[Rfam]
Shown here is a 186-nucleotide sequence from Humibacillus sp. DSM 29435, a member of the family "c-di-AMP riboswitch aptamer (ydaO/yuaA leader)". Pairs were carried over by alignment from the consensus structure.

RNA sequence: GACGUCUUCUCGCCGAACCGGCCACAGUCGGGCGGCGGGAUCGGGCGAGGACGGGGGACCCAGUUGAGCCGGCCAAGGAGCGAUCUUCGUUCCCGCUGCCGGACGGGGGUGAAGUCGCGAGAGCGACAGGGCACCUGACCGCCCUAACCCGACAGCUAACCUCGCAGGCGCGCGUCAGGAAGGAAA
Numbered sequence: 001g002a003c004g005u006c007u008u009c010u011c012g013c014c015g016a017a018c019c020g021g022c023c024a025c026a027g028u029c030g031g032g033c034g035g036c037g038g039g040a041u042c043g044g045g046c047g048a049g050g051a052c053g054g055g056g057g058a059c060c061c062a063g064u065u066g067a068g069c070c071g072g073c074c075a076a077g078g079a080g081c082g083a084u085c086u087u088c089g090u091u092c093c094c095g096c097u098g099c100c101g102g103a104c105g106g107g108g109g110u111g112a113a114g115u116c117g118c119g120a121g122a123g124c125g126a127c128a129g130g131g132c133a134c135c136u137g138a139c140c141g142c143c144c145u146a147a148c149c150c151g152a153c154a155g156c157u158a159a160c161c162u163c164g165c166a167g168g169c170g171c172g173c174g175u176c177a178g179g180a181a182g183g184a185a186a
Stems, first nucleotide, its partner, number of pairs: 011170004018050002052164005061106001107150003115126004129144004